[Rfam]
Shown here is a 136-nucleotide RNA, a member of the family "Hepatitis C alternative reading frame stem-loop". By type it is a cis-regulatory element.
RNA sequence: AACCGCCGCCCACAGGACGUUAAGUUCCCGGGUGGCGGACAGAUCGUCGGUGGAGUUUACUUACUGCCGCGCAGGGGCCCUCGUUUGGGUGUGCGCGCAGUGAGGAAGACUUCCGAACGGUCCCAGCCCAGAGGGA
Numbered sequence: 001a002a003c004c005g006c007c008g009c010c011c012a013c014a015g016g017a018c019g020u021u022a023a024g025u026u027c028c029c030g031g032g033u034g035g036c037g038g039a040c041a042g043a044u045c046g047u048c049g050g051u052g053g054a055g056u057u058u059a060c061u062u063a064c065u066g067c068c069g070c071g072c073a074g075g076g077g078c079c080c081u082c083g084u085u086u087g088g089g090u091g092u093g094c095g096c097g098c099a100g101u102g103a104g105g106a107a108g109a110c111u112u113c114c115g116a117a118c119g120g121u122c123c124c125a126g127c128c129c130a131g132a133g134g135g136a
Stems, first nucleotide, its partner, number of pairs: 003038009015027004042122006048115003052112002055110004060105002062102002068097006077090004